About this RNA:
mir-998 microRNA precursor family: a 94-nucleotide RNA from Anopheles sinensis. A search with the family's covariance model found it, with a score of 77 bits. NCBI's taxonomy places the organism under Eukaryota, Endopterygota, Culicoidea, Anophelinae, Myzorhynchus.

[Rfam]
RNA sequence: UGAUCGAUUCCGGAACUGAACUCUCAUGGGUCUGCAGUUACAUUAUAUCGGAGCAUCGUGUAGCACCAUGAGAUUCAGCUCCGGCGUUUGAUAC
Number, nucleotide and partner (000 for none) at each position: 001u000002g000003a092004u091005c090006g089007a088008u086009u000010c084011c083012g082013g081014a080015a000016c078017u077018g076019a000020a000021c000022u073023c072024u071025c070026a069027u068028g067029g066030g000031u000032c063033u062034g061035c060036a059037g000038u000039u000040a000041c000042a000043u000044u000045a000046u000047a000048u000049c000050g000051g000052a000053g000054c000055a000056u000057c000058g000059u036060g035061u034062a033063g032064c000065a000066c029067c028068a027069u026070g025071a024072g023073a022074u000075u000076c018077a017078g016079c000080u014081c013082c012083g011084g010085c000086g008087u000088u007089u006090g005091a004092u003093a000094c000